RNA sequence: UUCUAUGUGUUUUUGAUUGUUGCUCAGAAAGCCGUUAUUUAAGAAGGCUUUCGAGCAAUAAUCUCAAUCAAACAAGAA
Numbered sequence: 001u002u003c004u005a006u007g008u009g010u011u012u013u014u015g016a017u018u019g020u021u022g023c024u025c026a027g028a029a030a031g032c033c034g035u036u037a038u039u040u041a042a043g044a045a046g047g048c049u050u051u052c053g054a055g056c057a058a059u060a061a062u063c064u065c066a067a068u069c070a071a072a073c074a075a076g077a078a
Stems, first nucleotide, its partner, number of pairs: 001078004011067002015063003019059007027052007
The record is a 78-nucleotide RNA sequence from Laodelphax striatellus, which matches "mir-315 microRNA precursor family" in Rfam. The literature on the family includes a 2003 paper in Dev Cell by Aravin et al., "The small RNA profile during Drosophila melanogaster development". Its family is annotated with miRNA-mediated post-transcriptional gene silencing and RISC complex in the Gene Ontology.